RNA sequence: AUGGCAUAAUGAUGAAACUAUUUUUUCCCGAGAUCUUUUCACUGAUGAGUGAAAUAAUCCUCCUACUCAUUCUGA
Numbered sequence: 001a002u003g004g005c006a007u008a009a010u011g012a013u014g015a016a017a018c019u020a021u022u023u024u025u026u027c028c029c030g031a032g033a034u035c036u037u038u039u040c041a042c043u044g045a046u047g048a049g050u051g052a053a054a055u056a057a058u059c060c061u062c063c064u065a066c067u068c069a070u071u072c073u074g075a
Stems, first nucleotide, its partner, number of pairs: 006070002009067001024053002028047001